[Rfam]
Description:
Shown here is a 381-nucleotide part of an RNA from Clostridium sp. 'deep sea', a member of the family "Bacterial large subunit ribosomal RNA". The family's consensus secondary structure is taken from published work. The source organism's lineage runs through Bacteria, Bacillati, Bacillota, Eubacteriales and Clostridium.
RNA sequence: GAGAAGGAAAGUGAGAAUCUUUCCCGUCGAAAGCCCAAGGUUUCCUGAGGAAGGCUCGUCCACUCAGGGUAAGUCGGGGCCUAAGCCGAGGCCGAAAGGCGUAGGCGAUGGAUAACUAGUUGAGAUUCUAGUACCACCUAAUAUUGCUUGAGUGAAGCAAUGACACAGGAAGGUAGGGACCGCGCACUGUUGGAGGUGCGUCCAAAUGUGUAGGCAGUGAUUGCAGGUAAGUCCGCAGUUACAUAUGCUGAGGCAUGAUGGGGAGCGAAAUGAAGUAGCGAACGGCCUGAUCCUACGCUGUCGAGAAAAGUUGCUAGCGAGAUAGAAGGUGCCCGUACCGUAAACCGACACAGGUAGGCAAGGAGAGAAUCCUAAGACGCG
Numbered sequence: 001g002a003g004a005a006g007g008a009a010a011g012u013g014a015g016a017a018u019c020u021u022u023c024c025c026g027u028c029g030a031a032a033g034c035c036c037a038a039g040g041u042u043u044c045c046u047g048a049g050g051a052a053g054g055c056u057c058g059u060c061c062a063c064u065c066a067g068g069g070u071a072a073g074u075c076g077g078g079g080c081c082u083a084a085g086c087c088g089a090g091g092c093c094g095a096a097a098g099g100c101g102u103a104g105g106c107g108a109u110g111g112a113u114a115a116c117u118a119g120u121u122g123a124g125a126u127u128c129u130a131g132u133a134c135c136a137c138c139u140a141a142u143a144u145u146g147c148u149u150g151a152g153u154g155a156a157g158c159a160a161u162g163a164c165a166c167a168g169g170a171a172g173g174u175a176g177g178g179a180c181c182g183c184g185c186a187c188u189g190u191u192g193g194a195g196g197u198g199c200g201u202c203c204a205a206a207u208g209u210g211u212a213g214g215c216a217g218u219g220a221u222u223g224c225a226g227g228u229a230a231g232u233c234c235g236c237a238g239u240u241a242c243a244u245a246u247g248c249u250g251a252g253g254c255a256u257g258a259u260g261g262g263g264a265g266c267g268a269a270a271u272g273a274a275g276u277a278g279c280g281a282a283c284g285g286c287c288u289g290a291u292c293c294u295a296c297g298c299u300g301u302c303g304a305g306a307a308a309a310g311u312u313g314c315u316a317g318c319g320a321g322a323u324a325g326a327a328g329g330u331g332c333c334c335g336u337a338c339c340g341u342a343a344a345c346c347g348a349c350a351c352a353g354g355u356a357g358g359c360a361a362g363g364a365g366a367g368a369a370u371c372c373u374a375a376g377a378c379g380c381g
Stems, first nucleotide, its partner, number of pairs: 006024006025379004033359003039339002044068006053061002075335004080111002085106003089102001091100003115132005135331005142324004152318002156315006165301004171294003176288003180284001182201006202261002206256004213249003218241007226234002265279002268276001345354002361373004